[Rfam]
Record summary:
A member of the RNA family "Small nucleolar RNA MBII-202" from Megalops atlanticus, 82 nucleotides long.
RNA sequence: UGAUGACACAUUCUCCGGAAUCUCUGUACCUCCUUGAUGAUCUCCCUUGAACCCUUUUGCCUGAUGACUGCCUGGUGUCGCC
Numbered sequence: 001u002g003a004u005g006a007c008a009c010a011u012u013c014u015c016c017g018g019a020a021u022c023u024c025u026g027u028a029c030c031u032c033c034u035u036g037a038u039g040a041u042c043u044c045c046c047u048u049g050a051a052c053c054c055u056u057u058u059g060c061c062u063g064a065u066g067a068c069u070g071c072c073u074g075g076u077g078u079c080g081c082c
Stems, first nucleotide, its partner, number of pairs: 002082001004080003

Description:
The base pairs follow the family's consensus structure, which was predicted with PFOLD. It scores 60 bits against the family's covariance model. A reference for the family is Huttenhofer et al. (2001), "RNomics: an experimental approach that identifies 201 candidates for novel, small, non-messenger RNAs in mouse", EMBO J.